[Rfam]
RNA sequence: GCUGGGCUUAGCUACAUACCUCCACGUGGUGCCCAGUAGAAACAGGUCAAAUCUGGCUGAAAUGUAGCU
Numbered sequence: 001g002c003u004g005g006g007c008u009u010a011g012c013u014a015c016a017u018a019c020c021u022c023c024a025c026g027u028g029g030u031g032c033c034c035a036g037u038a039g040a041a042a043c044a045g046g047u048c049a050a051a052u053c054u055g056g057c058u059g060a061a062a063u064g065u066a067g068c069u
Base pairs, nucleotide, nucleotide: 001037002036003035004034005033006032007031018030019029020028043055044054045053046052047051
RNA: HDV ribozyme from F. prausnitzii